RNA sequence: AACGUGCUCCGGGGUCGGUGAGAAUCCGAACCGGCGGUGACAGUCCGCGAGAGUCUUGAUUCGUCGAGAUUCCGAUCCGGUGGAAUUCCGGUACCGACGGUGAUGCGAGAGAGAUCUCGCUAGUCCGGAAGGGAGGCAGCACGAU
Numbered sequence: 001a002a003c004g005u006g007c008u009c010c011g012g013g014g015u016c017g018g019u020g021a022g023a024a025u026c027c028g029a030a031c032c033g034g035c036g037g038u039g040a041c042a043g044u045c046c047g048c049g050a051g052a053g054u055c056u057u058g059a060u061u062c063g064u065c066g067a068g069a070u071u072c073c074g075a076u077c078c079g080g081u082g083g084a085a086u087u088c089c090g091g092u093a094c095c096g097a098c099g100g101u102g103a104u105g106c107g108a109g110a111g112a113g114a115u116c117u118c119g120c121u122a123g124u125c126c127g128g129a130a131g132g133g134a135g136g137c138a139g140c141a142c143g144a145u
Stems, first nucleotide, its partner, number of pairs: 003143006009136002016028003032096002034048004043094002051072003077091004098127003
Dot-bracket structure: ..((((((((.....(((.......)))...((((((.....[[))))..(((................)))....((((.......)))).]])).(((........................))).......)).))))))..
The family of this 145-nucleotide RNA from Microbacterium hydrocarbonoxydans is "FMN riboswitch aptamer (RFN element)".
The base pairs follow the family's consensus structure, which is taken from published work.
About the family: The RFN element is a highly conserved domain that is found frequently in the 5'-untranslated regions of prokaryotic mRNAs that encode for flavin mononucleotide (FMN) biosynthesis and transport proteins. This element is a metabolite-dependent riboswitch that directly binds FMN in the absence of proteins. In Bacillus subtilis, the riboswitch most likely controls gene expression by causing premature transcription termination within the 5' untranslated region of the ribDEAHT operon and precluding access to the ribosome-binding site of ypaA mRNA.The FMN riboswitch structure, reported in present an FMN-bound six-stem junction, adopts a butterfly-like scaffold, stapled together by opposingly directed but nearly identically folded peripheral domains.